[Rfam]
RNA sequence: AGGGAACGGGCUUGGCAGAAUCAGCGGGGAAAGAAGAUUUACGGGCCUUCUUGACACGGUAAUCGUAGAGGCGAGUUCCAAGGGACUCGCCUUCGAAACGUCUGGUAUAGGGAAGCGUCUUUUCGAAGGCCAAUCCUAUGGGUCAGACCCUUCGGGGGGUCUGUAUCCUAAACGCACGGUAAGACGUUGCUGGCUGGGGGGGUGCAUCCCCGGUCGGUUUAGGUACGUGCUAGCCCGGGAGCGCGAGCUUUUGGUGCCUAUCGACCCUGUUGAGCUUGACUCUAGUAAGUGUACCUAAAAAAAUUCUAUAUCGA
Numbered sequence: 001a002g003g004g005a006a007c008g009g010g011c012u013u014g015g016c017a018g019a020a021u022c023a024g025c026g027g028g029g030a031a032a033g034a035a036g037a038u039u040u041a042c043g044g045g046c047c048u049u050c051u052u053g054a055c056a057c058g059g060u061a062a063u064c065g066u067a068g069a070g071g072c073g074a075g076u077u078c079c080a081a082g083g084g085a086c087u088c089g090c091c092u093u094c095g096a097a098a099c100g101u102c103u104g105g106u107a108u109a110g111g112g113a114a115g116c117g118u119c120u121u122u123u124c125g126a127a128g129g130c131c132a133a134u135c136c137u138a139u140g141g142g143u144c145a146g147a148c149c150c151u152u153c154g155g156g157g158g159g160u161c162u163g164u165a166u167c168c169u170a171a172a173c174g175c176a177c178g179g180u181a182a183g184a185c186g187u188u189g190c191u192g193g194c195u196g197g198g199g200g201g202g203u204g205c206a207u208c209c210c211c212g213g214u215c216g217g218u219u220u221a222g223g224u225a226c227g228u229g230c231u232a233g234c235c236c237g238g239g240a241g242c243g244c245g246a247g248c249u250u251u252u253g254g255u256g257c258c259u260a261u262c263g264a265c266c267c268u269g270u271u272g273a274g275c276u277u278g279a280c281u282c283u284a285g286u287a288a289g290u291g292u293a294c295c296u297a298a299a300a301a302a303a304u305u306c307u308a309u310a311u312c313g314a
Stems, first nucleotide, its partner, number of pairs: 001307004
The family of this 314-nucleotide part of an RNA from Cladonia borealis is "Eukaryotic large subunit ribosomal RNA". The match comes from Rfam's covariance-model search (2810 bits). Rfam links the family to the GO terms ribosome and structural constituent of ribosome.